[Rfam]
Nucleotides: 047
Stems, first nucleotide, its partner, number of pairs: 006021006
Number, partner (000 for none) and nucleotide at each position: 001000c002000a003000a004000a005000c006021g007020g008019c009018c010017c011016u012000u013000u014000u015000c016011a017010g018009g019008g020007c021006c022000a023000c024000c025000a026000a027000u028000c029000a030000g031000u032000u033000a034000a035000a036000g037000a038000a039000c040000c041000a042000g043000g044000a045000a046000u047000u